[Rfam]
RNA sequence: UGUAUGUAGCUGGUUGACUUCGGGUCAAAUCGAUUAAUUGUUAAGCAUUUGGUCCCCUUCAACCAGCUGUUUUAC
Numbered sequence: 001u002g003u004a005u006g007u008a009g010c011u012g013g014u015u016g017a018c019u020u021c022g023g024g025u026c027a028a029a030u031c032g033a034u035u036a037a038u039u040g041u042u043a044a045g046c047a048u049u050u051g052g053u054c055c056c057c058u059u060c061a062a063c064c065a066g067c068u069g070u071u072u073u074a075c
Stems, first nucleotide, its partner, number of pairs: 004072001006070001008068010022054002025052006
Overview:
Shown here is a 75-nucleotide sequence from Clunio marinus, a member of the family "mir-133 microRNA precursor family". The organism belongs to Clunio, within Eukaryota. From the family's description: mir-133 was first experimentally characterised in mouse and homologues have since been discovered in several other species. The mature sequence is excised from the 3' arm of the hairpin. The family has 127 seed sequences and 3,763 matches in Rfam 15.1. The base pairs follow the family's consensus structure, which was predicted with PFOLD.